[Rfam]
RNA sequence: GAUCACAAUUUAGAAUUGCAGAGUCAAGCAGCAUGAAGAUGGCGGCUUGAUUGGGAAAUUCCCCGGACCACAGGGCAGAGAGUGCCGGCCGUGAAGGCAAAACGCUUCUUUUGGACGCUGCGAAGACGCCUCCGGGUGGAGCAUAUGCCGACGAGAGAGGUCUGUUCGUCAUACCACAGUUAUGCAAUUGGCCCCAAGCAACGUCGACGUCGUGCGGCAGCUUGUGGGUUAACUCAACGGGGAUUACUCAUGUUGUGUU
Dot-bracket structure: .(.((((((.(..((((((....((((((...............)))))...)...[[[.[[[[.........((((.....)))).(((.....)))...((...((((((......(((......(((....)))...))).........)))))).))......................)))))).((((...............................)))).........]]]]]]]....).)))))).)
This 259-nucleotide RNA sequence from Aphanomyces astaci belongs to the Rfam family "RNase MRP". The family's RNA type in Rfam is ribozyme. The organism belongs to Aphanomyces, within Eukaryota. The literature on the family includes a 1993 paper in FASEB J by Schmitt et al., "Secondary structure of RNase MRP RNA as predicted by phylogenetic comparison". RNase MRP is an enzymatically active ribonucleoprotein with two distinct roles in eukaryotes. In mitochondria it plays a direct role in the initiation of mitochondrial DNA replication. In the nucleus it is involved in precursor rRNA processing, where it cleaves the internal transcribed spacer 1 between 18S and 5.8S rRNAs. Despite distinct functions, RNase MRP has been shown to be evolutionarily related to RNase P. Like eukaryotic RNase P, RNase MRP is not catalytically active without associated protein subunits.